[Rfam]
RNA sequence: CGCCGCCACGCGGGAGAGACCUGCCGGCCUUCGGGUCGGACGGCGCCGAAGGAGCAACCGCCCCGGAAACUCUCAGGCAAAAGGACCGGGUGGCCCGG
Numbered sequence: 001c002g003c004c005g006c007c008a009c010g011c012g013g014g015a016g017a018g019a020c021c022u023g024c025c026g027g028c029c030u031u032c033g034g035g036u037c038g039g040a041c042g043g044c045g046c047c048g049a050a051g052g053a054g055c056a057a058c059c060g061c062c063c064c065g066g067a068a069a070c071u072c073u074c075a076g077g078c079a080a081a082a083g084g085a086c087c088g089g090g091u092g093g094c095c096c097g098g
Base pairs, nucleotide, nucleotide: 006093007092008091009090011088012087013086020043021042045078046077047076048074049073052072053071054070058066059065
The record is a 98-nucleotide RNA from Aquimonas voraii, which matches "Glycine riboswitch aptamer" in Rfam. Rfam links the family to the GO term glycine biosynthetic process. Pairs were carried over by alignment from the consensus structure. It scores 55 bits against the family's covariance model. This family represents the bacterial glycine riboswitch.